RNA: Plastid-rps12 3UTR RNA
RNA sequence: GGUUUCCAUUGGUGCAAAUCCAAUCAUCUCUAUUCGAGAUGAGAAUCAAUUCCCUAUUGGUAGCAAAUUAAAUAGUUAUCCACUAAGCAGGGGAAAUCGUAGU
Number, nucleotide and partner (000 for none) at each position: 001g000002g000003u000004u000005u000006c000007c000008a000009u023010u022011g021012g020013u000014g000015c000016a000017a000018a000019u000020c012021c011022a010023a009024u000025c000026a000027u000028c000029u000030c000031u000032a000033u000034u000035c000036g000037a000038g000039a000040u000041g000042a000043g000044a000045a000046u000047c000048a000049a000050u000051u000052c092053c091054c090055u089056a000057u082058u000059g080060g079061u078062a077063g076064c075065a000066a000067a000068u000069u000070a000071a000072a000073u000074a000075g064076u063077u062078a061079u060080c059081c000082a057083c000084u000085a000086a000087g000088c000089a055090g054091g053092g052093g000094a000095a000096a000097u000098c000099g000100u000101a000102g000103u000